[Rfam]
RNA sequence: GUUUGGGGCCUGAUUGUCGCUCCGCAGUUCUUUCAAAACGCUACGGAGAGGAAAGUCCGGACACCGCAGGGCAGGAUGCCGUGCGAGAGGUUUUGGCCUCAAGCAUGGGCGGCGCGCGUCAAGGCGCGUCGACGGAUAGUGUCACAGAAAACAAACCGCCUGUGCGGCGUGGUUCUUCGUAACUGCGCCAAGCGGGUAAGGGUGAAAAGGUGGGGUAAGAGCCCACCGCGUCGCGCGUGAGCGUUCGGCGGCACGAAAAACCCCAUCCGGUGCAAGGCAAAAUAGGAGACUGGGCGGCCCGUCCUAUAGGUCUCGGGUAUGCUGCAGCGCGUCGCGGUUCGCGGAGCUGGGGCCUUAGGGCCUCGGCUGCGAGGAGCCGCACGAGCCAAGGCGAGGGGAUCUUUUUUCUCUCGGCUUGAGAUAAAUGACAAUCGAAGCGCGCGGGGGCGGUUUACCGCUGCUGGCGCGCGGAACAGAAUCCGGCUUACCGGCCCCAAGCGUGC
Number, nucleotide and partner (000 for none) at each position: 001g499002u498003u497004u496005g495006g494007g493008g492009c491010c490011u000012g433013a432014u431015u430016g429017u428018c427019g000020c048021u047022c046023c045024g044025c000026a042027g041028u040029u000030c000031u000032u000033u000034c000035a000036a000037a000038a000039c000040g028041c027042u026043a000044c024045g023046g022047a021048g020049a000050g000051g000052a000053a486054a485055g484056u000057c483058c482059g481060g480061a479062c272063a271064c270065c269066g000067c000068a000069g300070g299071g298072c297073a000074g268075g267076a266077u265078g264079c108080c107081g106082u105083g104084c000085g000086a000087g000088a000089g000090g000091u000092u000093u000094u000095g000096g000097c000098c000099u000100c000101a000102a000103g000104c083105a082106u081107g080108g079109g133110c131111g130112g129113c128114g127115c126116g125117c124118g000119u000120c000121a000122a000123g000124g117125c116126g115127c114128g113129u112130c111131g110132a000133c109134g263135g262136a000137u000138a000139g261140u260141g000142u256143c255144a000145c000146a000147g000148a000149a000150a000151a000152c000153a000154a000155a000156c201157c200158g197159c196160c195161u194162g193163u192164g000165c000166g189167g188168c187169g186170u185171g184172g183173u182174u181175c000176u000177u000178c000179g000180u000181a174182a173183c172184u171185g170186c169187g168188c167189c166190a000191a000192g163193c162194g161195g160196g159197u158198a000199a000200g157201g156202g000203u000204g000205a000206a000207a000208a000209g227210g226211u225212g224213g223214g222215g000216u000217a000218a000219g000220a000221g000222c214223c213224c212225a211226c210227c209228g252229c250230g249231u248232c247233g246234c243235g242236c241237g000238u000239g000240a000241g236242c235243g234244u000245u000246c233247g232248g231249c230250g229251g000252c228253a000254c000255g143256a142257a000258a000259a000260a140261c139262c135263c134264c078265a077266u076267c075268c074269g065270g064271u063272g062273c000274a000275a000276g323277g322278c321279a320280a000281a000282a000283u000284a000285g000286g314287a313288g312289a311290c310291u000292g304293g303294g302295c301296g000297g072298c071299c070300c069301g295302u294303c293304c292305u000306a000307u000308a000309g000310g290311u289312c288313u287314c286315g000316g000317g000318u000319a000320u279321g278322c277323u276324g000325c000326a000327g000328c000329g000330c000331g000332u000333c000334g000335c000336g000337g000338u000339u000340c000341g000342c000343g000344g000345a000346g000347c000348u000349g000350g000351g000352g000353c000354c000355u000356u000357a000358g000359g000360g000361c000362c000363u000364c000365g000366g000367c000368u000369g000370c000371g000372a000373g000374g000375a000376g000377c000378c000379g000380c000381a000382c000383g000384a000385g000386c000387c000388a000389a000390g000391g000392c000393g000394a000395g000396g000397g000398g000399a000400u000401c000402u000403u000404u000405u000406u000407u000408c000409u000410c000411u000412c000413g000414g000415c000416u000417u000418g000419a000420g000421a000422u000423a000424a000425a000426u000427g018428a017429c016430a015431a014432u013433c012434g000435a000436a000437g000438c000439g000440c000441g000442c000443g000444g000445g000446g000447g000448c000449g000450g000451u000452u000453u000454a000455c000456c000457g000458c000459u000460g000461c000462u000463g000464g000465c000466g000467c000468g000469c000470g000471g000472a000473a000474c000475a000476g000477a000478a000479u061480c060481c059482g058483g057484c055485u054486u053487a000488c000489c000490g010491g009492c008493c007494c006495c005496a004497a003498g002499c001500g000501u000502g000503c000
RNA: Bacterial RNase P class A
Organism: Cephaloticoccus capnophilus